[Rfam]
RNA sequence: AAAUCAAUUAAAGCGCCAGGACUUAAGUGGCAAUAGAAUUUUUGUUAAGUUCUACUUAUUAAAUCAAAAAUUUAGAUCAUCACUUAAGUUGACGAGGUUGGGGAGUAUCGAAACUUCGGCGGGUGCCCCACGGUAUUUGCACUACCGUUAGCAACUGGCAAAACUAUAAAGUAAUUUAUAGUACAAAUCCAGUUAGGUGUUAAAA
Number, nucleotide and partner (000 for none) at each position: 001a000002a000003a000004u000005c000006a000007a000008u000009u000010a000011a000012a000013g000014c000015g000016c000017c000018a000019g000020g090021a089022c088023u087024u086025a085026a084027g083028u000029g081030g000031c000032a000033a000034u000035a000036g000037a000038a000039u000040u000041u000042u000043u000044g000045u000046u000047a000048a000049g000050u000051u000052c000053u000054a000055c000056u000057u000058a000059u000060u000061a000062a000063a000064u000065c000066a000067a000068a000069a000070a000071u000072u000073u000074a000075g000076a000077u000078c000079a000080u000081c029082a000083c027084u026085u025086a024087a023088g022089u021090u020091g000092a000093c000094g000095a000096g000097g000098u000099u130100g129101g128102g127103g126104a000105g000106u000107a000108u119109c118110g117111a116112a000113a000114c000115u000116u111117c110118g109119g108120c000121g000122g000123g000124u000125g000126c103127c102128c101129c100130a099131c147132g146133g145134u144135a143136u000137u000138u000139g000140c000141a000142c000143u135144a134145c133146c132147g131148u000149u000150a000151g000152c000153a194154a193155c192156u191157g190158g000159c000160a000161a000162a000163a000164c181165u180166a179167u178168a177169a176170a175171g000172u000173a000174a000175u170176u169177u168178a167179u166180a165181g164182u000183a000184c000185a000186a000187a000188u000189c000190c157191a156192g155193u154194u153195a000196g000197g000198u000199g000200u000201u000202a000203a000204a000205a000

The family of this 205-nucleotide sequence from Clostridium taeniosporum is "glmS glucosamine-6-phosphate activated ribozyme aptamer".
Pairs were carried over by alignment from the consensus structure, which is taken from published work.
The match comes from Rfam's covariance-model search (114 bits).
From the family's description: This entry contains a glucosamine-6-phosphate activated ribozyme that is found in the mRNA for GlmS. GlmS is an enzyme that uses fructose-6-phosphate and glutamine to generate glucosamine-6-phosphate.